[Rfam]
RNA sequence: CUCACACUCAUGUGUGUAGGACCCCAAAAGAUCACCAUUAAAAUUGGCACAGAUUUCUAGAAAAGUUAUCACAUAGGUGUGGGACUUGACUUUUCUAGAGAUUUGUGCCAAAUUUAAUGAUGAUCUUUUGUGAUCCUACAUACAUGGGUGUGGG
Numbered sequence: 001c002u003c004a005c006a007c008u009c010a011u012g013u014g015u016g017u018a019g020g021a022c023c024c025c026a027a028a029a030g031a032u033c034a035c036c037a038u039u040a041a042a043a044u045u046g047g048c049a050c051a052g053a054u055u056u057c058u059a060g061a062a063a064a065g066u067u068a069u070c071a072c073a074u075a076g077g078u079g080u081g082g083g084a085c086u087u088g089a090c091u092u093u094u095c096u097a098g099a100g101a102u103u104u105g106u107g108c109c110a111a112a113u114u115u116a117a118u119g120a121u122g123a124u125c126u127u128u129u130g131u132g133a134u135c136c137u138a139c140a141u142a143c144a145u146g147g148g149u150g151u152g153g154g
Stems, first nucleotide, its partner, number of pairs: 002153012015140007023132001025130004030125003034121001036119007044111025069082005
Rfam assigns this 154-nucleotide RNA from Amborella trichopoda to the family "MIR8565 microRNA precursor family". It scores 148 bits against the family's covariance model. Pairs were carried over by alignment from the consensus structure, which was predicted with RNAalifold. NCBI's taxonomy places the organism under Eukaryota, Viridiplantae, Spermatophyta, Amborellales, Amborella.